Notes
Rfam assigns this 65-nucleotide sequence from Rattus norvegicus to the family "U7 small nuclear RNA". A search with the family's covariance model found it, with a score of 47 bits.

[Rfam]
RNA sequence: GACUGAACAUAGCUCUUUUAGAAUUUUUCUAGCAGGAUUUUCGACUUUGUUUGGGAAAAUCCAAG
Numbered sequence: 001g002a003c004u005g006a007a008c009a010u011a012g013c014u015c016u017u018u019u020a021g022a023a024u025u026u027u028u029c030u031a032g033c034a035g036g037a038u039u040u041u042c043g044a045c046u047u048u049g050u051u052u053g054g055g056a057a058a059a060u061c062c063a064a065g
Stems, first nucleotide, its partner, number of pairs: 035062008043052002